[Rfam]
RNA sequence: UGUAUCUGUGAUGAUAAUUUGGCUCCCUCUACUGAAGUCUCUGAGGAAAACUGCCAUUCGUUACCCAAUUUCUUACUGAGAUACU
Numbered sequence: 001u002g003u004a005u006c007u008g009u010g011a012u013g014a015u016a017a018u019u020u021g022g023c024u025c026c027c028u029c030u031a032c033u034g035a036a037g038u039c040u041c042u043g044a045g046g047a048a049a050a051c052u053g054c055c056a057u058u059c060g061u062u063a064c065c066c067a068a069u070u071u072c073u074u075a076c077u078g079a080g081a082u083a084c085u
Base pairs, nucleotide, nucleotide: 002084003083004082005081006080
RNA: Small nucleolar RNA SNORD100